[Rfam]
RNA sequence: CAUACGAAAAGGCAAAAUUAUUGAAAAAUAAUGACGCAAAGCUAGAGGGGCUUCGAUAUCGUGAUGCAUGAUAUUAUGCCAGCCAGCUAUCGAA
Numbered sequence: 001c002a003u004a005c006g007a008a009a010a011g012g013c014a015a016a017a018u019u020a021u022u023g024a025a026a027a028a029u030a031a032u033g034a035c036g037c038a039a040a041g042c043u044a045g046a047g048g049g050g051c052u053u054c055g056a057u058a059u060c061g062u063g064a065u066g067c068a069u070g071a072u073a074u075u076a077u078g079c080c081a082g083c084c085a086g087c088u089a090u091c092g093a094a
Stems, first nucleotide, its partner, number of pairs: 012037002017032006040088004047084002049080003056074007